[Rfam]
RNA sequence: CCUGAGGCUGAAGCCUCAGGCUGAUACGCGAAGCCCCUUCAGGGCU
Number, nucleotide and partner (000 for none) at each position: 001c020002c019003u018004g017005a016006g015007g014008c013009u000010g000011a000012a000013g008014c007015c006016u005017c004018a003019g002020g001021c000022u000023g000024a000025u000026a000027c000028g000029c000030g000031a000032a000033g045034c044035c043036c042037c000038u000039u000040c000041a000042g036043g035044g034045c033046u000

Rfam assigns this 46-nucleotide RNA from a Chloroflexales bacterium to the family "Acido-Lenti-1 RNA".
It scores 38 bits against the family's covariance model.
Lineage of the source: Bacteria > Bacillati > Chloroflexota > Chloroflexia > Chloroflexales.
Pairs were carried over by alignment from the consensus structure, which is taken from published work.
The family's RNA type in Rfam is small RNA.